Notes
The family of this 92-nucleotide RNA sequence from Papaver somniferum is "Small nucleolar RNA U54". Clan: U54 clan. The family's RNA type in Rfam is C/D-box small nucleolar RNA. For this family Rfam cites "The high diversity of snoRNAs in plants: identification and comparative study of 120 snoRNA genes from Oryza sativa" (Chen et al., Nucleic Acids Res, 2003). Rfam describes the family as follows. U54 is a C/D box small nucleolar RNA, which acts as a methylation guide for 18S ribosomal RNA in plants. Pairs were carried over by alignment from the consensus structure, which was predicted with PFOLD.
RNA sequence: GGCUCAAUGAUUAUAUGCCUUACACAGGCAAUAUACGCUAUUCUCAUUGGUAUGUUAUCAAUAGGAUGAAAACCUAAAUUCAUAUGAGAGCU
Numbered sequence: 001g002g003c004u005c006a007a008u009g010a011u012u013a014u015a016u017g018c019c020u021u022a023c024a025c026a027g028g029c030a031a032u033a034u035a036c037g038c039u040a041u042u043c044u045c046a047u048u049g050g051u052a053u054g055u056u057a058u059c060a061a062u063a064g065g066a067u068g069a070a071a072a073c074c075u076a077a078a079u080u081c082a083u084a085u086g087a088g089a090g091c092u
Stems, first nucleotide, its partner, number of pairs: 001092005